About this RNA:
Rfam assigns this 83-nucleotide RNA sequence from Chanos chanos to the family "mir-128 microRNA precursor family". Its family is annotated with RISC complex and miRNA-mediated post-transcriptional gene silencing in the Gene Ontology. A search with the family's covariance model found it, with a score of 88 bits.
RNA sequence: CAGUAGUAGGGGAGGGGGCCGUCACACUGUAAGAGAUUGUGUAACUGGUCUCACAGUGAACCGGUCUCUUUUCCUGCUGCUUU
Numbered sequence: 001c002a003g004u005a006g007u008a009g010g011g012g013a014g015g016g017g018g019c020c021g022u023c024a025c026a027c028u029g030u031a032a033g034a035g036a037u038u039g040u041g042u043a044a045c046u047g048g049u050c051u052c053a054c055a056g057u058g059a060a061c062c063g064g065u066c067u068c069u070u071u072u073c074c075u076g077c078u079g080c081u082u083u
Stems, first nucleotide, its partner, number of pairs: 006077005015068007025058006033052003